[Rfam]
RNA sequence: CCCGUCGAGGGGCGCUGCGACCGUCGCAAGGACGGCCAGGCUCGGCGGGCUUACCGCGACAACCGCGCCCGUUUAAU
Numbered sequence: 001c002c003c004g005u006c007g008a009g010g011g012g013c014g015c016u017g018c019g020a021c022c023g024u025c026g027c028a029a030g031g032a033c034g035g036c037c038a039g040g041c042u043c044g045g046c047g048g049g050c051u052u053a054c055c056g057c058g059a060c061a062a063c064c065g066c067g068c069c070c071g072u073u074u075a076a077u
Stems, first nucleotide, its partner, number of pairs: 002048007021035005
Dot-bracket structure: .(((((((............(((((.....)))))......))))))).............................
RNA: SAH (S-adenosyl-L-homocysteine) riboswitch aptamer
Organism: Cognatiluteimonas weifangensis